Rfam assigns this 126-nucleotide RNA sequence from Vitis rotundifolia to the family "small nucleolar RNA snoR126". The family's consensus secondary structure was predicted with RNAalifold.
[Rfam]
RNA sequence: AGGCAGUGAUGACAGAAAUCAUUUCUCGAUUCUGAUUAGAAUUUCAUGAGACCAAAAGCGAGUGUACGUUCGUUUGUUGAACGUAUACGGCUUUCUGAUGACUGCAUUUGUGCGUGUCUGAGCCUC
Numbered sequence: 001a002g003g004c005a006g007u008g009a010u011g012a013c014a015g016a017a018a019u020c021a022u023u024u025c026u027c028g029a030u031u032c033u034g035a036u037u038a039g040a041a042u043u044u045c046a047u048g049a050g051a052c053c054a055a056a057a058g059c060g061a062g063u064g065u066a067c068g069u070u071c072g073u074u075u076g077u078u079g080a081a082c083g084u085a086u087a088c089g090g091c092u093u094u095c096u097g098a099u100g101a102c103u104g105c106a107u108u109u110g111u112g113c114g115u116g117u118c119u120g121a122g123c124c125u126c
Stems, first nucleotide, its partner, number of pairs: 001125004

It is annotated as a C/D-box small nucleolar RNA. The source organism's lineage runs through Eukaryota, Streptophyta, Mesangiospermae, Vitales and Vitis. Rfam 15.1 lists 423 matches to the family in 200 species. A reference for the family is Chen and Wu (2009), "Mining small RNA sequencing data: a new approach to identify small nucleolar RNAs in Arabidopsis", Nucleic Acids Res.